[Rfam]
The family of this 102-nucleotide RNA sequence from Bacillus sp. HNG is "Purine riboswitch aptamer". The match comes from Rfam's covariance-model search (88 bits). Gene Ontology term of the family: purine nucleobase biosynthetic process. Riboswitches are metabolite binding domains within certain messenger RNAs that serve as precision sensors for their corresponding targets. NCBI's taxonomy places the organism under Bacteria, Bacillati, Caryophanales, Bacillaceae, Bacillus.
RNA sequence: AAUUAUAUUAAUAUAGUAAUUUGUAUAUGUUCGGGAAUAUGGCCCGAUUGUUUCUACCAAGCUACCGUAAAAAGCUUGACUACAAAUGUAUGCCAAAAGGAU
Numbered sequence: 001a002a003u004u005a006u007a008u009u010a011a012u013a014u015a016g017u018a019a020u021u022u023g024u025a026u027a028u029g030u031u032c033g034g035g036a037a038u039a040u041g042g043c044c045c046g047a048u049u050g051u052u053u054c055u056a057c058c059a060a061g062c063u064a065c066c067g068u069a070a071a072a073a074g075c076u077u078g079a080c081u082a083c084a085a086a087u088g089u090a091u092g093c094c095a096a097a098a099g100g101a102u
Base pairs, nucleotide, nucleotide: 019087020086021085022084023083024082025081029049031047032046033045034044035043058078059077060076061075062074063073